[Rfam]
RNA sequence: UGAAAAGGACCGUCAUCGGCUAAGUUCGCGACGUCCUGUCGCAACGCCGAUAUUAGCACGUCCUGUUCG
Dot-bracket structure: ..............((((((.......(((((.....)))))...))))))....(.((.....)).).
A member of the RNA family "Bacillaceae-1 RNA" from Lentibacillus salicampi, 69 nucleotides long. The match comes from Rfam's covariance-model search (57 bits). Rfam 15.1 lists 5,721 matches to the family in 247 species. The base pairs follow the family's consensus structure, which is taken from published work.